[Rfam]
RNA: Rhizobiales sRNA Atu_C7
RNA sequence: CGUUUUGUUUCUUCAAGCGCAAAGCCCGACGACGCAGCAAUACAGGUUCUCCUGGCGUGUCUUGAUGCAGCAGAUGUUCCCUCCCUCAUCUGCGUGCGAUGCGCCCUCCUAGCCUCGCUCGUCACACGACCAGCGAGGCGCUUU
Numbered sequence: 001c002g003u004u005u006u007g008u009u010u011c012u013u014c015a016a017g018c019g020c021a022a023a024g025c026c027c028g029a030c031g032a033c034g035c036a037g038c039a040a041u042a043c044a045g046g047u048u049c050u051c052c053u054g055g056c057g058u059g060u061c062u063u064g065a066u067g068c069a070g071c072a073g074a075u076g077u078u079c080c081c082u083c084c085c086u087c088a089u090c091u092g093c094g095u096g097c098g099a100u101g102c103g104c105c106c107u108c109c110u111a112g113c114c115u116c117g118c119u120c121g122u123c124a125c126a127c128g129a130c131c132a133g134c135g136a137g138g139c140g141c142u143u144u
Base pairs, nucleotide, nucleotide: 054105055104056103057102058101059100060099061098070093071092072091073090074089075088076087112139113138114137115136116135117134118133119132122129123128